The record is a 103-nucleotide sequence from Carnegiea gigantea, which matches "Small nucleolar RNA R64/Z200 family" in Rfam. The family's RNA type in Rfam is C/D-box small nucleolar RNA.
RNA sequence: AUUCUGCUUUGAUGAUUUAUGGAAUAAUUCACAUGUCAGACUUCAGAGGCCAGCUUCUUCCGAAGCUACCUGUGAGAUUAACUUCCUUUUUUCUGAGCGGAAG
Number, nucleotide and partner (000 for none) at each position: 001a000002u102003u101004c100005u099006g098007c097008u000009u000010u000011g000012a000013u000014g000015a000016u000017u000018u000019a000020u000021g000022g000023a000024a000025u000026a000027a000028u000029u000030c000031a000032c000033a000034u000035g000036u000037c000038a000039g000040a000041c000042u000043u000044c000045a000046g000047a000048g070049g069050c000051c000052a000053g000054c000055u000056u000057c000058u000059u000060c000061c000062g000063a000064a000065g000066c000067u000068a000069c049070c048071u000072g000073u000074g000075a000076g000077a000078u000079u000080a000081a000082c000083u000084u000085c000086c000087u000088u000089u000090u000091u000092u000093c000094u000095g000096a000097g007098c006099g005100g004101a003102a002103g000